[Rfam]
RNA sequence: AGCUCACCAAUGAUGGAAAUCCAAUGUCUGAACCAAUGAAUUCAUUGUGAUUUAACUUUUUUAUUUACUCUGAGGUGAGCU
Numbered sequence: 001a002g003c004u005c006a007c008c009a010a011u012g013a014u015g016g017a018a019a020u021c022c023a024a025u026g027u028c029u030g031a032a033c034c035a036a037u038g039a040a041u042u043c044a045u046u047g048u049g050a051u052u053u054a055a056c057u058u059u060u061u062u063a064u065u066u067a068c069u070c071u072g073a074g075g076u077g078a079g080c081u
Base pairs, nucleotide, nucleotide: 002080003079004078005077006076007075008074

The record is an 81-nucleotide sequence from Oryzias melastigma, which matches "Small nucleolar RNA SNORD72" in Rfam. A search with the family's covariance model found it, with a score of 49 bits. snoRNA HBII-240 belongs to the CD family of snoRNAs. The pairing is the family consensus, mapped onto this sequence. The literature on the family includes a 2001 paper in EMBO J by Huttenhofer et al., "RNomics: an experimental approach that identifies 201 candidates for novel, small, non-messenger RNAs in mouse". By type it is a C/D-box small nucleolar RNA. Taxonomically the source falls in Oryzias (Eukaryota, Opisthokonta, Eumetazoa, Craniata).